A member of the RNA family "MIR7486 microRNA precursor family" from Gossypium lobatum, 88 nucleotides long. Pairs were carried over by alignment from the consensus structure, which was predicted with RNAalifold. Rfam 15.1 lists 10,132 matches to the family in 36 species. NCBI's taxonomy places the organism under Eukaryota, Streptophytina, Euphyllophyta, rosids, Gossypium.
[Rfam]
RNA sequence: CACGUCAGCACGAUUUGCUGACGUGGCAGCAAAUCGCGUUCUAUAGUGCGCGAUUUUGUUGCCAUGUCAGCAAAUCGGGCUGACGUGA
Numbered sequence: 001c002a003c004g005u006c007a008g009c010a011c012g013a014u015u016u017g018c019u020g021a022c023g024u025g026g027c028a029g030c031a032a033a034u035c036g037c038g039u040u041c042u043a044u045a046g047u048g049c050g051c052g053a054u055u056u057u058g059u060u061g062c063c064a065u066g067u068c069a070g071c072a073a074a075u076c077g078g079g080c081u082g083a084c085g086u087g088a
Base pairs, nucleotide, nucleotide: 001087002086003085004084005083006082007081008080009079011077012076013075014074015073016072017071018070019069020068021067023065024064025063026062027061028060029059030058031057032055033054034053035052036051037050038049041046